This 128-nucleotide sequence from Pontivivens insulae belongs to the Rfam family "Ruegeria cis8 sRNA". A search with the family's covariance model found it, with a score of 99 bits. The base pairs follow the family's consensus structure, which was predicted with RNAfold.

RNA sequence: ACCGCCAGAAUCUUUGCGAUAUACGGGAUCAGCGGCAGGUUCAGGAUCAGCAGGAUCAGGUUGCCGAUAAACAUCGACAUGAUCACCGCCCAGAAGAUCGACGGUUGGUCGAUCAUCAGGCGCGGACC
Numbered sequence: 001a002c003c004g005c006c007a008g009a010a011u012c013u014u015u016g017c018g019a020u021a022u023a024c025g026g027g028a029u030c031a032g033c034g035g036c037a038g039g040u041u042c043a044g045g046a047u048c049a050g051c052a053g054g055a056u057c058a059g060g061u062u063g064c065c066g067a068u069a070a071a072c073a074u075c076g077a078c079a080u081g082a083u084c085a086c087c088g089c090c091c092a093g094a095a096g097a098u099c100g101a102c103g104g105u106u107g108g109u110c111g112a113u114c115a116u117c118a119g120g121c122g123c124g125g126a127c128c
Stems, first nucleotide, its partner, number of pairs: 003018003007014002026128002029125002033122002036119001038114003043109001046106001048104001050102001053099002056097002061093003073083003
For this family Rfam cites "Experimental Identification of Small Non-Coding RNAs in the Model Marine Bacterium Ruegeria pomeroyi DSS-3" (Rivers et al., Front Microbiol, 2016).